[Rfam]
RNA sequence: CCGCCCGUCGCUACUACCGAUUGAAUGGUUUAGUGAGAUUGUUGGAUUCUGAUCUAAGAAAUGGCAACAUUUCUAUGAAUGGGAAAAGACACUCAAACAAGAUUAUUUAGAGGAAGUAAAAGUCGUAACAAGGUUUCCGUAGGUGAACCUGCGGAAGGAUCGUUU
Numbered sequence: 001c002c003g004c005c006c007g008u009c010g011c012u013a014c015u016a017c018c019g020a021u022u023g024a025a026u027g028g029u030u031u032a033g034u035g036a037g038a039u040u041g042u043u044g045g046a047u048u049c050u051g052a053u054c055u056a057a058g059a060a061a062u063g064g065c066a067a068c069a070u071u072u073c074u075a076u077g078a079a080u081g082g083g084a085a086a087a088g089a090c091a092c093u094c095a096a097a098c099a100a101g102a103u104u105a106u107u108u109a110g111a112g113g114a115a116g117u118a119a120a121a122g123u124c125g126u127a128a129c130a131a132g133g134u135u136u137c138c139g140u141a142g143g144u145g146a147a148c149c150u151g152c153g154g155a156a157g158g159a160u161c162g163u164u165u
Stems, first nucleotide, its partner, number of pairs: 001132001003129001006125002009122001012118004017113002021109001023108009033098002037094002040091004047084005053078002057074001059072004134157010
Dot-bracket structure: (.(..((.(..((((.((..(.(((((((((.((..((.((((...(((((.((..(.((((......)))).)..)).)))))...)))).))..)).))))))))))..)).))))...).))...)..).((((((((((....))))))))))........
Rfam assigns this 165-nucleotide part of an RNA from Schmidtea mediterranea to the family "Eukaryotic small subunit ribosomal RNA". Clan: SSU clan. Rfam's curators put it in the seed alignment. NCBI's taxonomy places the organism under Eukaryota, Eumetazoa, Spiralia, Rhabditophora, Schmidtea.